A member of the RNA family "SAH (S-adenosyl-L-homocysteine) riboswitch aptamer" from Rubrivivax gelatinosus, 90 nucleotides long. The base pairs follow the family's consensus structure, which is taken from published work.
RNA sequence: UGCCCCGAGGAGCGUUGCGAUGGCGUCGGCCACCAGGCUCGGGGCGAGCCGCGGCACCGGUCGCGGCCGCAGCAACGGCGCUCGUCCCAU
Numbered sequence: 001u002g003c004c005c006c007g008a009g010g011a012g013c014g015u016u017g018c019g020a021u022g023g024c025g026u027c028g029g030c031c032a033c034c035a036g037g038c039u040c041g042g043g044g045c046g047a048g049c050c051g052c053g054g055c056a057c058c059g060g061u062c063g064c065g066g067c068c069g070c071a072g073c074a075a076c077g078g079c080g081c082u083c084g085u086c087c088c089a090u
Stems, first nucleotide, its partner, number of pairs: 002045007021032004